A member of the RNA family "JUMPstart RNA" from Aeromonas salmonicida, 38 nucleotides long. The family's RNA type in Rfam is cis-regulatory element. The base pairs follow the family's consensus structure, which is taken from published work.
Nucleotides: 038
Stems, first nucleotide, its partner, number of pairs: 009024004
Number, partner (000 for none) and nucleotide at each position: 001000g002000a003000g004000c005000a006000u007000u008000u009024u010023g011022g012021a013000a014000g015000c016000u017000g018000u019000a020000a021012u022011c023010c024009a025000c026000g027000g028000g029000c030000g031000g032000u033000a034000g035000c036000g037000u038000g